This 85-nucleotide RNA sequence from Mesorhizobium australicum belongs to the Rfam family "Rhizobiales sRNA Atu_Ti3". The literature on the family includes a 2012 paper in RNA Biol by Wilms et al., "Deep sequencing uncovers numerous small RNAs on all four replicons of the plant pathogen Agrobacterium tumefaciens". A search with the family's covariance model found it, with a score of 71 bits. Lineage of the source: Bacteria > Pseudomonadota > Alphaproteobacteria > Phyllobacteriaceae > Mesorhizobium australicum. Rfam classes the family as a small RNA.

RNA sequence: CGCCUUUCUGCUUCCUUUCUCCGAGCAGCAGCCUCAUCAGCAGGAUAGGUGAACUGCACACUGUAGUAUAGAUCUGGUUGCUUCU
Numbered sequence: 001c002g003c004c005u006u007u008c009u010g011c012u013u014c015c016u017u018u019c020u021c022c023g024a025g026c027a028g029c030a031g032c033c034u035c036a037u038c039a040g041c042a043g044g045a046u047a048g049g050u051g052a053a054c055u056g057c058a059c060a061c062u063g064u065a066g067u068a069u070a071g072a073u074c075u076g077g078u079u080g081c082u083u084c085u
Base pairs, nucleotide, nucleotide: 001076002075049061050060051059
Dot-bracket structure: ((..............................................(((.......))).............)).........